[Rfam]
RNA sequence: AAUGAGAGAAUGACAAAUCAAAUUUUUUUCUUUUGAUUUUUAGUUUUUUUUCUCCCGAGAAAAUUCAAAUCCAACUAAAAAUGCUAAAAAUCAUGAGAAAAAAUCUGAUUUAUCAUUCUCACAUU
Numbered sequence: 001a002a003u004g005a006g007a008g009a010a011u012g013a014c015a016a017a018u019c020a021a022a023u024u025u026u027u028u029u030c031u032u033u034u035g036a037u038u039u040u041u042a043g044u045u046u047u048u049u050u051u052c053u054c055c056c057g058a059g060a061a062a063a064u065u066c067a068a069a070u071c072c073a074a075c076u077a078a079a080a081a082u083g084c085u086a087a088a089a090a091u092c093a094u095g096a097g098a099a100a101a102a103a104u105c106u107g108a109u110u111u112a113u114c115a116u117u118c119u120c121a122c123a124u125u
Stems, first nucleotide, its partner, number of pairs: 001125004006120008015111006022104003026101003030097003034093007042085002046081004

MIR7504 microRNA precursor family: a 125-nucleotide RNA from Gossypium anomalum. Rfam links the family to the GO terms miRNA-mediated post-transcriptional gene silencing and RISC complex. Lineage of the source: Eukaryota > Mesangiospermae > eudicotyledons > rosids > Gossypium.